[Rfam]
RNA: Small nucleolar RNA SNORD69
RNA sequence: AGUGCAAAGCAUAUGAUGAGAAAGCAUGGAAACUGACUCUCUAUGGAGUACACUCAGUCCAACACUGAGCUUUGUGUC
Numbered sequence: 001a002g003u004g005c006a007a008a009g010c011a012u013a014u015g016a017u018g019a020g021a022a023a024g025c026a027u028g029g030a031a032a033c034u035g036a037c038u039c040u041c042u043a044u045g046g047a048g049u050a051c052a053c054u055c056a057g058u059c060c061a062a063c064a065c066u067g068a069g070c071u072u073u074g075u076g077u078c
Stems, first nucleotide, its partner, number of pairs: 002077009
Dot-bracket structure: .(((((((((..........................................................))))))))).